[Rfam]
RNA sequence: CAAGGGUACCCACCUUGAGGGCUUGGAAGCAUCAGGAAGUCUUCCAGGUGGGAGACAAAACAACCCUGUUUAAUAUUUAAACAGCAGUGUUCCCC
Number, nucleotide and partner (000 for none) at each position: 001c000002a000003a000004g024005g023006g022007u021008a000009c019010c000011c017012a000013c000014c000015u000016u000017g011018a000019g009020g000021g007022c006023u005024u004025g000026g000027a000028a000029g000030c000031a000032u060033c000034a000035g000036g000037a000038a000039g056040u055041c054042u053043u052044c051045c050046a000047g000048g000049u000050g045051g044052g043053a042054g041055a040056c039057a000058a000059a000060a032061c000062a000063a000064c000065c000066c084067u083068g082069u081070u080071u079072a078073a077074u000075a000076u000077u073078u072079a071080a070081a069082c068083a067084g066085c000086a000087g000088u000089g000090u000091u000092c000093c000094c000095c000
This 95-nucleotide sequence from Vulpes vulpes belongs to the Rfam family "G-CSF factor stem-loop destabilising element (SLDE)". A reference for the family is Putland et al. (2002), "RNA destabilization by the granulocyte colony-stimulating factor stem-loop destabilizing element involves a single stem-loop that promotes deadenylation", Mol Cell Biol. A search with the family's covariance model found it, with a score of 91 bits.